[Rfam]
RNA sequence: UCAUAAGUUCAAGGCCAUUGCAGAAGUGUUCACAGUGUAGCCCUGUCAGAUUCCACCUAAUCUGAAUUCUGCU
Numbered sequence: 001u002c003a004u005a006a007g008u009u010c011a012a013g014g015c016c017a018u019u020g021c022a023g024a025a026g027u028g029u030u031c032a033c034a035g036u037g038u039a040g041c042c043c044u045g046u047c048a049g050a051u052u053c054c055a056c057c058u059a060a061u062c063u064g065a066a067u068u069c070u071g072c073u
Stems, first nucleotide, its partner, number of pairs: 013042003020072006026038003047064006
Overview: The family of this 73-nucleotide RNA sequence from Crocodylus porosus is "Mammalian CPEB3 ribozyme". NCBI's taxonomy places the organism under Eukaryota, Opisthokonta, Gnathostomata, Longirostres, Crocodylus. A search with the family's covariance model found it, with a score of 37 bits.